Rfam assigns this 110-nucleotide RNA from Metabacillus lacus to the family "TPP riboswitch aptamer (THI element)".
RNA sequence: GAAAAUGCGUCGGGGAGCUGAGUGAACUUGGCUGAGAGGAUACUGAUUGGUAUCGACCCAUGAACCUGAUCUGGGUAAUGCCAGCGGAGGGAUAUGAAGCAGCAAGGAAC
Dot-bracket structure: .....(.(((.(((..(((((......)))))......(((((......)))))..))).....(((...((((......))))...)))...))).)............
A reference for the family is Rodionov et al. (2002), "Comparative genomics of thiamin biosynthesis in procaryotes. New genes and regulatory mechanisms", J Biol Chem. The base pairs follow the family's consensus structure, which is taken from published work. It scores 60 bits against the family's covariance model.